[Rfam]
RNA sequence: AUAGAAGAGAGACAUUAUUUUUUAGAUUCAUCGAGAAUCUGAUGUAUCUAGUCCAUAUUAUAGACUAAAUACAUUAGAUUCUCAAUGAAUCUAAAAAGUAAAGUUUCUCUUCUAU
Numbered sequence: 001a002u003a004g005a006a007g008a009g010a011g012a013c014a015u016u017a018u019u020u021u022u023u024a025g026a027u028u029c030a031u032c033g034a035g036a037a038u039c040u041g042a043u044g045u046a047u048c049u050a051g052u053c054c055a056u057a058u059u060a061u062a063g064a065c066u067a068a069a070u071a072c073a074u075u076a077g078a079u080u081c082u083c084a085a086u087g088a089a090u091c092u093a094a095a096a097a098g099u100a101a102a103g104u105u106u107c108u109c110u111u112c113u114a115u
Stems, first nucleotide, its partner, number of pairs: 002114006009107005015101011027089005033083012049067004

This 115-nucleotide sequence from Trifolium pratense belongs to the Rfam family "MIR2593 microRNA precursor family". Gene Ontology terms of the family: RISC complex and miRNA-mediated post-transcriptional gene silencing. The match comes from Rfam's covariance-model search (100 bits).